RNA sequence: GGGCCCAUAGCUCAGCAGGAUAGAGCGACGGCCUCCUAAGCCGUAGGUCGCCAGUUCGACUCUGGCUGGGCCCG
Numbered sequence: 001g002g003g004c005c006c007a008u009a010g011c012u013c014a015g016c017a018g019g020a021u022a023g024a025g026c027g028a029c030g031g032c033c034u035c036c037u038a039a040g041c042c043g044u045a046g047g048u049c050g051c052c053a054g055u056u057c058g059a060c061u062c063u064g065g066c067u068g069g070g071c072c073c074g
Stems, first nucleotide, its partner, number of pairs: 001073007010026004028044005050066005
Shown here is a 74-nucleotide sequence from Thermanaerovibrio acidaminovorans, a member of the family "tRNA". By type it is a transfer RNA. Rfam links the family to the GO term triplet codon-amino acid adaptor activity. The family's consensus secondary structure is taken from published work.